[Rfam]
RNA sequence: AGUGAAGGUAGAGGUGCAAGCUUCAUCAGUAACAGCUUUGAGGAGAAUGAGCUCCGACGAUUUGCUGUGAAAGGGAAUGUUUGCCGAAGCAGGGGGAGACUCAUCACUCACCAUGCUGGUCUUGCAUUGAAUAAAUGCCGGAUUGUCAAGACACUAGUCUUGGAGAGCUAUCUCACUG
Numbered sequence: 001a002g003u004g005a006a007g008g009u010a011g012a013g014g015u016g017c018a019a020g021c022u023u024c025a026u027c028a029g030u031a032a033c034a035g036c037u038u039u040g041a042g043g044a045g046a047a048u049g050a051g052c053u054c055c056g057a058c059g060a061u062u063u064g065c066u067g068u069g070a071a072a073g074g075g076a077a078u079g080u081u082u083g084c085c086g087a088a089g090c091a092g093g094g095g096g097a098g099a100c101u102c103a104u105c106a107c108u109c110a111c112c113a114u115g116c117u118g119g120u121c122u123u124g125c126a127u128u129g130a131a132u133a134a135a136u137g138c139c140g141g142a143u144u145g146u147c148a149a150g151a152c153a154c155u156a157g158u159c160u161u162g163g164a165g166a167g168c169u170a171u172c173u174c175a176c177u178g
Base pairs, nucleotide, nucleotide: 006173007172008171009170010169011168016084017083018082019081020080021079022077023076024075032068033067034066035065036064088117089116090115091114093112094111096109097108098107118144119143120142121141122140124138125137126136127135128134146163147162148161149160150159151158152157